[Rfam]
RNA sequence: CUUUGUCGUAAAGCGCCUGAACUGCAUGAGAGCGGAGAGAAUUGCAGUUGACGAGGAGGAGGAGUAUCGAGUAAUCGGCGGAUACCUCCCGGCUUCGCGCCAAAGCCGAAGAGUCGCGGCACAAAACAAUGGGGUGACUCGUUGUACAAAGGCUGCGAUUGACGCAUUU
Numbered sequence: 001c002u003u004u005g006u007c008g009u010a011a012a013g014c015g016c017c018u019g020a021a022c023u024g025c026a027u028g029a030g031a032g033c034g035g036a037g038a039g040a041a042u043u044g045c046a047g048u049u050g051a052c053g054a055g056g057a058g059g060a061g062g063a064g065u066a067u068c069g070a071g072u073a074a075u076c077g078g079c080g081g082a083u084a085c086c087u088c089c090c091g092g093c094u095u096c097g098c099g100c101c102a103a104a105g106c107c108g109a110a111g112a113g114u115c116g117c118g119g120c121a122c123a124a125a126a127c128a129a130u131g132g133g134g135u136g137a138c139u140c141g142u143u144g145u146a147c148a149a150a151g152g153c154u155g156c157g158a159u160u161g162a163c164g165c166a167u168u169u
Base pairs, nucleotide, nucleotide: 020049021048022047023046024045025044026043058089059088060087061086062085067078068077069076070075090108091107092106093105094104095103113159114158115157116156117155118154119153127144128143129142130141131140132139133138

Notes
A member of the RNA family "glmS glucosamine-6-phosphate activated ribozyme aptamer" from Thermoactinomyces mirandus, 169 nucleotides long. It scores 112 bits against the family's covariance model.